RNA: Plastid-ndhJ 3UTR RNA
Organism: Camphora micrantha
RNA sequence: CCAUCAACUUUGUGCUGCACACAUCACUUGGAUGGGCCCUAGAAAAUUAGGUGGGAG
Numbered sequence: 001c002c003a004u005c006a007a008c009u010u011u012g013u014g015c016u017g018c019a020c021a022c023a024u025c026a027c028u029u030g031g032a033u034g035g036g037c038c039c040u041a042g043a044a045a046a047u048u049a050g051g052u053g054g055g056a057g
Stems, first nucleotide, its partner, number of pairs: 020036001022034004
Dot-bracket structure: ...................(.((((.....)))).).....................